[Rfam]
Rfam assigns this 96-nucleotide sequence from Carex littledalei to the family "Small nucleolar RNA Z161/Z228". Lineage of the source: Eukaryota > Viridiplantae > Streptophytina > Cariceae > Carex subgen. Euthyceras.

RNA sequence: GGGCAAAAUGAUGAAUAAACACGUCAAUUACUCACGAUGGUCAUCUGAAGCACAUUUGUUGUGUCUUACUGAUGCAUAAACUAUUUUCUGAUGCCC
Numbered sequence: 001g002g003g004c005a006a007a008a009u010g011a012u013g014a015a016u017a018a019a020c021a022c023g024u025c026a027a028u029u030a031c032u033c034a035c036g037a038u039g040g041u042c043a044u045c046u047g048a049a050g051c052a053c054a055u056u057u058g059u060u061g062u063g064u065c066u067u068a069c070u071g072a073u074g075c076a077u078a079a080a081c082u083a084u085u086u087u088c089u090g091a092u093g094c095c096c
Base pairs, nucleotide, nucleotide: 001096002095003094004093051063052062053061

A search with the family's covariance model found it, with a score of 63 bits. Gene Ontology terms of the family: RNA processing and nucleolus.